[Rfam]
RNA: Small nucleolar RNA Z105
RNA sequence: GCACUAUGAUGAUUGAUUUUAUUGUCAUAUGAUGGUUUUUGUGAUUAAAACAAUAUCCUCCUACUCAUUCUGA
Numbered sequence: 001g002c003a004c005u006a007u008g009a010u011g012a013u014u015g016a017u018u019u020u021a022u023u024g025u026c027a028u029a030u031g032a033u034g035g036u037u038u039u040u041g042u043g044a045u046u047a048a049a050a051c052a053a054u055a056u057c058c059u060c061c062u063a064c065u066c067a068u069u070c071u072g073a
Stems, first nucleotide, its partner, number of pairs: 006068004028049001